[Rfam]
Record summary:
A member of the RNA family "UnaL2 LINE 3' element" from Albula glossodonta, 54 nucleotides long. A search with the family's covariance model found it, with a score of 61 bits. The source organism's lineage runs through Eukaryota, Vertebrata, Euteleostomi, Elopomorpha and Albula. Rfam classes the family as a cis-regulatory element. The eel long interspersed element (LINE) UnaL2 and its partner short interspersed element (SINE) share a conserved 3' tail containing a stem-loop that is critical for their retrotransposition. Presumably, the first step of retrotransposition is the recognition of their 3' tails by UnaL2-encoded reverse transcriptase. The solution structure of a 17-nucleotide RNA derived from the 3' tail of UnaL2 was determined by NMR. For this family Rfam cites "Solution structure of an RNA stem-loop derived from the 3' conserved region of eel LINE UnaL2" (Baba et al., RNA, 2004). The base pairs follow the family's consensus structure, which is taken from published work.
RNA sequence: AGUCUAAACAACUGUAAGUCGCUUUGGAUAAAAGCGUCAGCUAAAUGACUGUAA
Number, nucleotide and partner (000 for none) at each position: 001a000002g000003u000004c000005u000006a000007a000008a000009c000010a000011a000012c000013u043014g041015u040016a000017a000018g000019u000020c036021g035022c034023u033024u032025u031026g000027g000028a000029u000030a000031a025032a024033a023034g022035c021036g020037u000038c000039a000040g015041c014042u000043a013044a000045a000046u000047g000048a000049c000050u000051g000052u000053a000054a000